A member of the RNA family "Ruegeria cis8 sRNA" from Pseudooctadecabacter jejudonensis, 128 nucleotides long. The family's consensus secondary structure was predicted with RNAfold. Rfam classes the family as a small RNA. Rfam 15.1 lists 138 matches to the family in 133 species.

[Rfam]
RNA sequence: AUCGCCAGCAGUUUGGCGAUGUAGGGGAUCAAGGGCAGGUUCAGGAUCAGCAGCACCAGAUUGCCGAUGAACAUGGACAUGAUGACCGCCCAGAAGAUUUGCGGUUCAUCCACCAUCAGGCGCGGGCC
Number, nucleotide and partner (000 for none) at each position: 001a000002u000003c018004g017005c016006c015007a014008g013009c000010a000011g000012u000013u008014u007015g006016g005017c004018g003019a000020u000021g000022u000023a000024g000025g000026g128027g127028a000029u125030c124031a000032a000033g000034g121035g000036c119037a000038g114039g113040u112041u000042c000043a109044g000045g107046a106047u000048c104049a000050g102051c101052a100053g099054c000055a000056c000057c096058a000059g000060a000061u093062u092063g091064c000065c000066g000067a000068u000069g000070a000071a000072c084073a083074u082075g000076g000077a000078c000079a000080u000081g000082a074083u073084g072085a000086c000087c000088g000089c000090c000091c063092a062093g061094a000095a000096g057097a000098u000099u053100u052101g051102c050103g000104g048105u000106u046107c045108a000109u043110c000111c000112a040113c039114c038115a000116u000117c000118a000119g036120g000121c034122g000123c000124g030125g029126g000127c027128c026